[Rfam]
RNA sequence: GGGGCUGUAGCUCAGGUGGUUAGAGCGCACGCCUGAUAAGCGUGAGGUCGGUGGUUCAACUCCACCCAGCCCCA
Numbered sequence: 001g002g003g004g005c006u007g008u009a010g011c012u013c014a015g016g017u018g019g020u021u022a023g024a025g026c027g028c029a030c031g032c033c034u035g036a037u038a039a040g041c042g043u044g045a046g047g048u049c050g051g052u053g054g055u056u057c058a059a060c061u062c063c064a065c066c067c068a069g070c071c072c073c074a
Stems, first nucleotide, its partner, number of pairs: 001073007010026004028044005050066005
Source information
Rfam assigns this 74-nucleotide RNA from Rhodothermus marinus to the family "tRNA". It is annotated as a transfer RNA.